[Rfam]
The record is an 83-nucleotide sequence from Caenorhabditis elegans, which matches "mir-266 microRNA precursor family" in Rfam.

RNA sequence: GGGCAAAGGUUAGGCAAGACUUUGGCGAAACUUGGAUUCAGGCAAUAUCAAAGUUUAACUCAAGUUUCACCCAACUCUUGCUA
Numbered sequence: 001g002g003g004c005a006a007a008g009g010u011u012a013g014g015c016a017a018g019a020c021u022u023u024g025g026c027g028a029a030a031c032u033u034g035g036a037u038u039c040a041g042g043c044a045a046u047a048u049c050a051a052a053g054u055u056u057a058a059c060u061c062a063a064g065u066u067u068c069a070c071c072c073a074a075c076u077c078u079u080g081c082u083a
Stems, first nucleotide, its partner, number of pairs: 002082005008076004013071002017067005024060002028056006